[Rfam]
RNA sequence: CAACCAUCCAGAGCGACCGAGAGACCUGGCUCCAUGACGUCGCAGCAACCCGCCCGUUCCCGGGUGUGGGUGCUUCCGCCGGGUUCGAUGGAGG
Numbered sequence: 001c002a003a004c005c006a007u008c009c010a011g012a013g014c015g016a017c018c019g020a021g022a023g024a025c026c027u028g029g030c031u032c033c034a035u036g037a038c039g040u041c042g043c044a045g046c047a048a049c050c051c052g053c054c055c056g057u058u059c060c061c062g063g064g065u066g067u068g069g070g071u072g073c074u075u076c077c078g079c080c081g082g083g084u085u086c087g088a089u090g091g092a093g094g
Stems, first nucleotide, its partner, number of pairs: 001094001004091005013043005021032003026082004044074004049070002051066004078086001
RNA: SAM riboswitch aptamer (S box leader)
Organism: Nocardia asteroides